Background: This 102-nucleotide sequence from Soehngenia longivitae belongs to the Rfam family "Purine riboswitch aptamer". Lineage of the source: Bacteria > Bacillati > Tissierellales > Tissierellaceae > Soehngenia.
RNA sequence: UUUGAAAUAAGAAAUAUAGCUCAUAUAAAUCCCAUAAUAAGGUUGGGAUGUUUCUACGAAAUGACCGAUAAUCAUUUGUCUAUGAGCGAAAGUGUACCUAGG
Numbered sequence: 001u002u003u004g005a006a007a008u009a010a011g012a013a014a015u016a017u018a019g020c021u022c023a024u025a026u027a028a029a030u031c032c033c034a035u036a037a038u039a040a041g042g043u044u045g046g047g048a049u050g051u052u053u054c055u056a057c058g059a060a061a062u063g064a065c066c067g068a069u070a071a072u073c074a075u076u077u078g079u080c081u082a083u084g085a086g087c088g089a090a091a092g093u094g095u096a097c098c099u100a101g102g
Stems, first nucleotide, its partner, number of pairs: 019087007029049006059077006